[Rfam]
The family of this 77-nucleotide RNA from Lymphocryptovirus macacinegamma4 is "mir-BART3 microRNA precursor family". Rfam links the family to the GO terms miRNA-mediated post-transcriptional gene silencing and RISC complex. On this family, see Cai et al., PLoS Pathog 2006: "Epstein-Barr virus microRNAs are evolutionarily conserved and differentially expressed".
RNA sequence: CUUCGGUGGAACCUAGUGCCGGUGAUGUGCUGUGGAUAGGCAGCUAGCGCACCACUUUUCACUAGGUGUCACCGGGG
Number, nucleotide and partner (000 for none) at each position: 001c077002u076003u075004c074005g073006g072007u071008g070009g069010a000011a067012c066013c065014u064015a063016g062017u061018g060019c000020c000021g056022g055023u054024g053025a000026u051027g050028u049029g048030c047031u046032g045033u042034g041035g000036a000037u000038a000039g000040g000041c034042a033043g000044c000045u032046a031047g030048c029049g028050c027051a026052c000053c024054a023055c022056u021057u000058u000059u000060c018061a017062c016063u015064a014065g013066g012067u011068g000069u009070c008071a007072c006073c005074g004075g003076g002077g001